A member of the RNA family "MIR7502 microRNA precursor family" from Gossypium anomalum, 145 nucleotides long. It scores 75 bits against the family's covariance model. The source organism's lineage runs through Eukaryota, Embryophyta, Euphyllophyta, eudicotyledons and Gossypium.
RNA sequence: UAUUAAAGAUUAUAUCUAUUUCUAUUGUUAAAAAAUGGUCAUUAUAUGUCAGCAUGAGGUACACGUGGCACGCCAAACACCACUGUCUUAUUGUUUUGUCAACCACACCAUUUUUUAACAGUAUAAAGAGAUGAAAUUUUUAAUA
Numbered sequence: 001u002a003u004u005a006a007a008g009a010u011u012a013u014a015u016c017u018a019u020u021u022c023u024a025u026u027g028u029u030a031a032a033a034a035a036u037g038g039u040c041a042u043u044a045u046a047u048g049u050c051a052g053c054a055u056g057a058g059g060u061a062c063a064c065g066u067g068g069c070a071c072g073c074c075a076a077a078c079a080c081c082a083c084u085g086u087c088u089u090a091u092u093g094u095u096u097u098g099u100c101a102a103c104c105a106c107a108c109c110a111u112u113u114u115u116u117a118a119c120a121g122u123a124u125a126a127a128g129a130g131a132u133g134a135a136a137u138u139u140u141u142a143a144u145a
Stems, first nucleotide, its partner, number of pairs: 002144010013133004019127003023123004028118006